The family of this 90-nucleotide RNA from Serratia entomophila is "CopA-like RNA". Rfam describes the family as follows. In several groups of bacterial plasmids, antisense RNAs regulate copy number through inhibition of replication initiator protein synthesis. These RNAs are characterised by a long hairpin structure interrupted by several unpaired residues or bulged loops. In plasmid R1, the inhibitory complex between the antisense RNA (CopA) and its target mRNA (CopT) is characterised by a four-way junction structure and a side-by-side helical alignment.
RNA sequence: AUAGAGCAACAGCUUCUAUACAGCUUUGAGUGAGCCCCGUUAAUCUUUCGUCUCCGCCAAGAAAUGAGAAGAUUAUCGGGGUUUUUGCUU
Numbered sequence: 001a002u003a004g005a006g007c008a009a010c011a012g013c014u015u016c017u018a019u020a021c022a023g024c025u026u027u028g029a030g031u032g033a034g035c036c037c038c039g040u041u042a043a044u045c046u047u048u049c050g051u052c053u054c055c056g057c058c059a060a061g062a063a064a065u066g067a068g069a070a071g072a073u074u075a076u077c078g079g080g081g082u083u084u085u086u087g088c089u090u
Stems, first nucleotide, its partner, number of pairs: 001019005028090004032084008041075007
Rfam's curators put it in the seed alignment. The family's consensus secondary structure was predicted with PFOLD.